[Rfam]
RNA sequence: GAAAGUAAAGGGGCCGUACCGGUUUCUUGCCAGAGCAAGAAAUUGGUUAUUGCCCCUUUACUA
Dot-bracket structure: ......((((((((.(((..((.((((((......)))))).))...))).))))))))....

Notes
A member of the RNA family "Plastid-psbA-4 3UTR RNA" from Acleisanthes obtusa, 63 nucleotides long. By type it is a cis-regulatory element. Clan: Plastid-psbA 3UTR RNA clan. Plastid psbA-4 is a non-coding RNA (ncRNA) present in plastids. Pairs were carried over by alignment from the consensus structure, which was predicted with LocARNA. The sequence is in the family's curated seed alignment.